The family of this 85-nucleotide RNA from Actinacidiphila bryophytorum is "ZMP/ZTP riboswitch aptamer (pfl RNA motif)". The family's consensus secondary structure is taken from published work.
RNA sequence: GGUCGCGGUCGCGACUGGCGAGGGUGGGACACCACCGGGGAGCGGCCGACUGCAUCCGUGAGCGUCGACCGCCUGGGCGCCUCUC
Numbered sequence: 001g002g003u004c005g006c007g008g009u010c011g012c013g014a015c016u017g018g019c020g021a022g023g024g025u026g027g028g029a030c031a032c033c034a035c036c037g038g039g040g041a042g043c044g045g046c047c048g049a050c051u052g053c054a055u056c057c058g059u060g061a062g063c064g065u066c067g068a069c070c071g072c073c074u075g076g077g078c079g080c081c082u083c084u085c
Base pairs, nucleotide, nucleotide: 006048007047008046009045010044011043012042015039016038017073018072019071020070024035025034026033027032062080063079064078065077066076